[Rfam]
RNA sequence: GAACCAUAAGACUCGCUGUUCUGAUUUUGUAAUAAUCAGGGCAGGCUAAACAUUCGCUAUAUUAAGACCAUGCAUGUGUCCCCAGACCAGGGAGCCCUGCUUUGUCGUGCACCAUCAAUAACUGGUUUUCUAAAUGCUGGUGAUAAAA
Dot-bracket structure: (..............(((((((((((.......)))))))))))..........)...........((((.((........((((....................................))))..........)))))).......

A member of the RNA family "Small nucleolar RNA SNORA72" from Myotis davidii, 148 nucleotides long. Rfam's curators write: U72 is a member of the H/ACA class of snoRNAs. The snoRNA gene is located in intron 4 of the ribosomal L30 protein gene in human, mouse and chicken. Rfam links the family to the GO terms RNA processing and nucleolus. On this family, see Ganot et al., Genes Dev 1997: "The family of box ACA small nucleolar RNAs is defined by an evolutionarily conserved secondary structure and ubiquitous sequence elements essential for RNA accumulation". By type it is an H/ACA-box small nucleolar RNA.